The family of this 125-nucleotide sequence from Halobacillus andaensis is "Ribosomal protein L20 leader". Pairs were carried over by alignment from the consensus structure, which was predicted with CMfinder. Gene Ontology term of the family: regulation of gene expression. The match comes from Rfam's covariance-model search (80 bits). It is annotated as a cis-regulatory leader.
RNA sequence: UGAGACAAGAAGAAGCACCCGCUUCUCACCUGAUCGACGCUUAACGCAGUUGGCAGGUUACUUAUCCUUUGACUUUGAUAGGAGACGUGUGGGUGCAUUAUGUGUACCGGCACUUUUUUUAUGGG
Numbered sequence: 001u002g003a004g005a006c007a008a009g010a011a012g013a014a015g016c017a018c019c020c021g022c023u024u025c026u027c028a029c030c031u032g033a034u035c036g037a038c039g040c041u042u043a044a045c046g047c048a049g050u051u052g053g054c055a056g057g058u059u060a061c062u063u064a065u066c067c068u069u070u071g072a073c074u075u076u077g078a079u080a081g082g083a084g085a086c087g088u089g090u091g092g093g094u095g096c097a098u099u100a101u102g103u104g105u106a107c108c109g110g111c112a113c114u115u116u117u118u119u120u121a122u123g124g125g
Base pairs, nucleotide, nucleotide: 011026012025013024014023015022016021028058029057030056036051037050038049039047040046088112089111090110092108093107094106095105096104097103